[Rfam]
Record summary: Rfam assigns this 194-nucleotide RNA sequence from Chimaeribacter arupi to the family "Yersinia sRNA 251". The family's consensus secondary structure was predicted with RNAfold.
RNA sequence: AGUAGGCGUUCAGCGUGCGCUGGCAGAGUGCCGAGCGGACGCAGUCCUCUUUGGUGAAGCGGAUAAUCCCAAUCAUCUCAUCCUCUUCGAAGCGCUCCAGCGCAUCACUCAGCCCCGAUUUCACACCGCGGGGCAAGUCACACUGGGUCACGUCGCCGUUGACAAUCACGGUGACGUUUUCACCCAGACGCGUC
Numbered sequence: 001a002g003u004a005g006g007c008g009u010u011c012a013g014c015g016u017g018c019g020c021u022g023g024c025a026g027a028g029u030g031c032c033g034a035g036c037g038g039a040c041g042c043a044g045u046c047c048u049c050u051u052u053g054g055u056g057a058a059g060c061g062g063a064u065a066a067u068c069c070c071a072a073u074c075a076u077c078u079c080a081u082c083c084u085c086u087u088c089g090a091a092g093c094g095c096u097c098c099a100g101c102g103c104a105u106c107a108c109u110c111a112g113c114c115c116c117g118a119u120u121u122c123a124c125a126c127c128g129c130g131g132g133g134c135a136a137g138u139c140a141c142a143c144u145g146g147g148u149c150a151c152g153u154c155g156c157c158g159u160u161g162a163c164a165a166u167c168a169c170g171g172u173g174a175c176g177u178u179u180u181c182a183c184c185c186a187g188a189c190g191c192g193u194c
Base pairs, nucleotide, nucleotide: 003053004052005051006050008048014041015040016039018037019036061078062077063076064075066073067072083112084111093102094101095100114192116190117189119188120187121186126133127132137166138165144158145157146156171183172182173181174180
It scores 156 bits against the family's covariance model.